Source information:
Shown here is a 163-nucleotide RNA sequence from Effusibacillus lacus, a member of the family "FMN riboswitch aptamer (RFN element)". Lineage of the source: Bacteria > Bacillati > Bacilli > Caryophanales > Effusibacillus.
RNA sequence: UAGUUCCUUCAGGGCAGGGUGAGGCGACAGCCAAUUCCCGACCGGUGGUGAUGCAGGUAUUCUGUCUGCUAAGUCCACGAGCCGACCCGGAGAUGAACCGGGGAAGCAGGAGUUUGGUGCGAAUCCAACACCGACGGUACAGUCCGGAUGGGAGAAGGAAAAC
Numbered sequence: 001u002a003g004u005u006c007c008u009u010c011a012g013g014g015c016a017g018g019g020u021g022a023g024g025c026g027a028c029a030g031c032c033a034a035u036u037c038c039c040g041a042c043c044g045g046u047g048g049u050g051a052u053g054c055a056g057g058u059a060u061u062c063u064g065u066c067u068g069c070u071a072a073g074u075c076c077a078c079g080a081g082c083c084g085a086c087c088c089g090g091a092g093a094u095g096a097a098c099c100g101g102g103g104a105a106g107c108a109g110g111a112g113u114u115u116g117g118u119g120c121g122a123a124u125c126c127a128a129c130a131c132c133g134a135c136g137g138u139a140c141a142g143u144c145c146g147g148a149u150g151g152g153a154g155a156a157g158g159a160a161a162a163c
Stems, first nucleotide, its partner, number of pairs: 004160007017039003041143002043133002045078004073131002083106001112129002115127003135146003

It scores 85 bits against the family's covariance model.